RNA sequence: UCCAUGCAGACCUAGUAACCGCAAGGCGGCGAAAGCAGACAGGAAGGAGAGAAGGAGCAUAUAACCUUCCGAAAGGUAAAUAUAUGCCUUGAUAGGUCCGGGCGGACGCUUCUUGCAUGGCGGUGCUUGAUGGUAAUGCGCCGUUUCAUGCCCGUUGACCUUGCGCUGCGGUUGCAACCAUCUAUCAGCAGUACGGGGCAAGGAGAAAACUAUGACCAGUG
Numbered sequence: 001u002c003c004a005u006g007c008a009g010a011c012c013u014a015g016u017a018a019c020c021g022c023a024a025g026g027c028g029g030c031g032a033a034a035g036c037a038g039a040c041a042g043g044a045a046g047g048a049g050a051g052a053a054g055g056a057g058c059a060u061a062u063a064a065c066c067u068u069c070c071g072a073a074a075g076g077u078a079a080a081u082a083u084a085u086g087c088c089u090u091g092a093u094a095g096g097u098c099c100g101g102g103c104g105g106a107c108g109c110u111u112c113u114u115g116c117a118u119g120g121c122g123g124u125g126c127u128u129g130a131u132g133g134u135a136a137u138g139c140g141c142c143g144u145u146u147c148a149u150g151c152c153c154g155u156u157g158a159c160c161u162u163g164c165g166c167u168g169c170g171g172u173u174g175c176a177a178c179c180a181u182c183u184a185u186c187a188g189c190a191g192u193a194c195g196g197g198g199c200a201a202g203g204a205g206a207a208a209a210c211u212a213u214g215a216c217c218a219g220u221g
Stems, first nucleotide, its partner, number of pairs: 005041002019029002065076004085200007093193001094161005099154005108116002119145007163192002165189002170179001
The record is a 221-nucleotide RNA sequence, which matches "RT-2 RNA" in Rfam. Pairs were carried over by alignment from the consensus structure, which is taken from published work. By type it is a small RNA. Rfam's curators put it in the seed alignment.